[Rfam]
RNA sequence: UCUGGGGCUACAUGCUUCCUUAUAUUCCCAUAUGAAUCACUAUCAGAUAUGGAAUGUAAGGAAGUGUGUGGUUUUGGA
Numbered sequence: 001u002c003u004g005g006g007g008c009u010a011c012a013u014g015c016u017u018c019c020u021u022a023u024a025u026u027c028c029c030a031u032a033u034g035a036a037u038c039a040c041u042a043u044c045a046g047a048u049a050u051g052g053a054a055u056g057u058a059a060g061g062a063a064g065u066g067u068g069u070g071g072u073u074u075u076g077g078a
Stems, first nucleotide, its partner, number of pairs: 007072019028052005
mir-1 microRNA precursor family: a 78-nucleotide RNA from Anguilla anguilla. Rfam describes the family as follows. This family represents the microRNA (miRNA) mir-1 family. miRNAs are transcribed as ~70nt precursors (modelled here) and subsequently processed by the Dicer enzyme to give a ~22nt product. In this case the mature sequence comes from the 3' arm of the precursor. The extents of the hairpin precursors are not generally known and are estimated based on hairpin prediction. The products are thought to have regulatory roles through complementarity to mRNA. The involvement of Dicer in miRNA processing suggests a relationship with the phenomenon of RNA interference. miRNAs are numbered based on the sequence of the mature RNA. This family also contains the mir-206 from human, which appears to be related to mir-1. Lineage of the source: Eukaryota > Neopterygii > Anguilliformes > Anguillidae > Anguilla. The match comes from Rfam's covariance-model search (76 bits). The family has 137 seed sequences and 4,474 matches in Rfam 15.1. The base pairs follow the family's consensus structure, which was predicted with RNAalifold.